This 58-nucleotide RNA from Salinibacterium xinjiangense belongs to the Rfam family "msiK RNA".
It is annotated as a cis-regulatory element.
The source organism's lineage runs through Bacteria, Actinomycetota, Actinomycetes, Micrococcales and Salinibacterium.

[Rfam]
RNA sequence: UCACCACUUCCAUUCACUAAGGAUCGUCCGGCACGUACCUGCCGGUGAAGGAGCGUUU
Numbered sequence: 001u002c003a004c005c006a007c008u009u010c011c012a013u014u015c016a017c018u019a020a021g022g023a024u025c026g027u028c029c030g031g032c033a034c035g036u037a038c039c040u041g042c043c044g045g046u047g048a049a050g051g052a053g054c055g056u057u058u
Base pairs, nucleotide, nucleotide: 010051011050013049014048015047016046028045029044030043031042032041033040